[Rfam]
RNA: c-di-GMP-I riboswitch aptamer
Organism: Domibacillus iocasae
RNA sequence: AUCUGAAAAAGGCAAACUUCUCCGAAAGGAAAGGACGCAAAGCCGUGGGCCUAAACGCUGGAAAGCGUAUGGUUGUCAGGCUGCCAGG
Numbered sequence: 001a002u003c004u005g006a007a008a009a010a011g012g013c014a015a016a017c018u019u020c021u022c023c024g025a026a027a028g029g030a031a032a033g034g035a036c037g038c039a040a041a042g043c044c045g046u047g048g049g050c051c052u053a054a055a056c057g058c059u060g061g062a063a064a065g066c067g068u069a070u071g072g073u074u075g076u077c078a079g080g081c082u083g084c085c086a087g088g
Base pairs, nucleotide, nucleotide: 012038013037017033018032019031021030022029023028041082042081043080044079046078047077048076049073050072051071056067057066058065059064